[Rfam]
RNA sequence: UGAUGACAGUCUCCGGAAUCGCUGUACUGCUUUGAUGAAAGCUCUUUUGAACCCUUUUCCAUCUGACGACCGAGCGCUAUCAUG
Numbered sequence: 001u002g003a004u005g006a007c008a009g010u011c012u013c014c015g016g017a018a019u020c021g022c023u024g025u026a027c028u029g030c031u032u033u034g035a036u037g038a039a040a041g042c043u044c045u046u047u048u049g050a051a052c053c054c055u056u057u058u059c060c061a062u063c064u065g066a067c068g069a070c071c072g073a074g075c076g077c078u079a080u081c082a083u084g
Stems, first nucleotide, its partner, number of pairs: 003083004
Dot-bracket structure: ..((((.........................................................................)))).
RNA: Small nucleolar RNA MBII-202